The family of this 103-nucleotide sequence from Bacillus safensis is "SAM riboswitch aptamer (S box leader)". The organism belongs to Bacillus, within Bacteria.

RNA sequence: CUCUUAUCCAGAGAGGUGGAGGGACUGGCCCGAUGAAACCCGGCAACCUGCGAUUCGCAAGGUGCUACUUCCUGCAAAAUGAUUCUAUUUUGAAAGAUAAGGA
Numbered sequence: 001c002u003c004u005u006a007u008c009c010a011g012a013g014a015g016g017u018g019g020a021g022g023g024a025c026u027g028g029c030c031c032g033a034u035g036a037a038a039c040c041c042g043g044c045a046a047c048c049u050g051c052g053a054u055u056c057g058c059a060a061g062g063u064g065c066u067a068c069u070u071c072c073u074g075c076a077a078a079a080u081g082a083u084u085c086u087a088u089u090u091u092g093a094a095a096g097a098u099a100a101g102g103a
Base pairs, nucleotide, nucleotide: 002102003101004100005099006098007097008096013041015040016039017038021031022030023029025074027072028071042066043065044064045063047062048061049059050058051057052056070095075092076091077090078089079088080087